RNA sequence: GCUCUGUGAUGAACUCCAUGCGUGUCAUCUGAGCCUGGCUUCCCUGUCAUCUCAGCCCAGGUAGUGUUCUACUUCCCAAGGCUGUUGUCUGGCCUGGAAAGGGGAUCCCAGGCAAAGGAUCAACCUUUGUAUUCUGAGAGC
Numbered sequence: 001g002c003u004c005u006g007u008g009a010u011g012a013a014c015u016c017c018a019u020g021c022g023u024g025u026c027a028u029c030u031g032a033g034c035c036u037g038g039c040u041u042c043c044c045u046g047u048c049a050u051c052u053c054a055g056c057c058c059a060g061g062u063a064g065u066g067u068u069c070u071a072c073u074u075c076c077c078a079a080g081g082c083u084g085u086u087g088u089c090u091g092g093c094c095u096g097g098a099a100a101g102g103g104g105a106u107c108c109c110a111g112g113c114a115a116a117g118g119a120u121c122a123a124c125c126u127u128u129g130u131a132u133u134c135u136g137a138g139a140g141c
Stems, first nucleotide, its partner, number of pairs: 001141004042103004047098002